[Rfam]
RNA sequence: GGGGACGUUCUGGAUUCGACAGGGAUAGGUCGUGCUUAAGUGGCGAGUCGAGCUGGGUGUCCUCGUAUAAAACGCCCAUCGCCUACAGUUGGCAAACAAGAUAACGAUUUCGCUUUAGCAGCGGCGUAAUAACCCUGUUAGCGGUUCCUCCCUUCAUCACCCAUGUGAAGGAAUAGGGACUCACUCUAAGUGGGAUACGCCUUGCGCUCUCCACCUGAGGGCAAUAGGAAGAGAUGAAUCAGGUUAGCCUCACAGAAGCCUGUUAGUUGGCUGAAAUGACGGCGAAUUGCUAAUAAACUGACUACACUCGUAGAUGCUUAAGUUGCGUUAUCUCUGGACGUGGGUUCGAUUCCCACCGUCUCCACCA
Numbered sequence: 001g002g003g004g005a006c007g008u009u010c011u012g013g014a015u016u017c018g019a020c021a022g023g024g025a026u027a028g029g030u031c032g033u034g035c036u037u038a039a040g041u042g043g044c045g046a047g048u049c050g051a052g053c054u055g056g057g058u059g060u061c062c063u064c065g066u067a068u069a070a071a072a073c074g075c076c077c078a079u080c081g082c083c084u085a086c087a088g089u090u091g092g093c094a095a096a097c098a099a100g101a102u103a104a105c106g107a108u109u110u111c112g113c114u115u116u117a118g119c120a121g122c123g124g125c126g127u128a129a130u131a132a133c134c135c136u137g138u139u140a141g142c143g144g145u146u147c148c149u150c151c152c153u154u155c156a157u158c159a160c161c162c163a164u165g166u167g168a169a170g171g172a173a174u175a176g177g178g179a180c181u182c183a184c185u186c187u188a189a190g191u192g193g194g195a196u197a198c199g200c201c202u203u204g205c206g207c208u209c210u211c212c213a214c215c216u217g218a219g220g221g222c223a224a225u226a227g228g229a230a231g232a233g234a235u236g237a238a239u240c241a242g243g244u245u246a247g248c249c250u251c252a253c254a255g256a257a258g259c260c261u262g263u264u265a266g267u268u269g270g271c272u273g274a275a276a277u278g279a280c281g282g283c284g285a286a287u288u289g290c291u292a293a294u295a296a297a298c299u300g301a302c303u304a305c306a307c308u309c310g311u312a313g314a315u316g317c318u319u320a321a322g323u324u325g326c327g328u329u330a331u332c333u334c335u336g337g338a339c340g341u342g343g344g345u346u347c348g349a350u351u352c353c354c355a356c357c358g359u360c361u362c363c364a365c366c367a
Base pairs, nucleotide, nucleotide: 001363002362003361004360005359006358007357020336021335022334023333024332025331026330027329028328034323035322036321037320038319039318040317041316042315044310045309046308047307048306049065050064051063052062054078055077056076057075058074059073060072115141116140117139118138119137120136121135144180145179146178147177148176149175151171152170153169154168155167156166157165160194161193162192163191164190200228201227202226206222207221208220213245215243216242247283248282249281251278252277258271259270260269262302263301264300265299267295340356341355342354343353344352
Shown here is a 367-nucleotide RNA sequence from Salipaludibacillus neizhouensis, a member of the family "transfer-messenger RNA". Bacterial tmRNA, also known as 10Sa RNA or SsrA, is named for its dual tRNA and mRNA-like properties. Its role is to liberate the mRNA from a stalled ribosome. To accomplish this part of the tmRNA is used as a reading frame that ends in a translation stop signal. Gene Ontology term of the family: RNA catabolic process. A reference for the family is Mao et al. (2010), "Variations on the tmRNA gene", RNA Biol. Rfam classes the family as a non-coding RNA gene.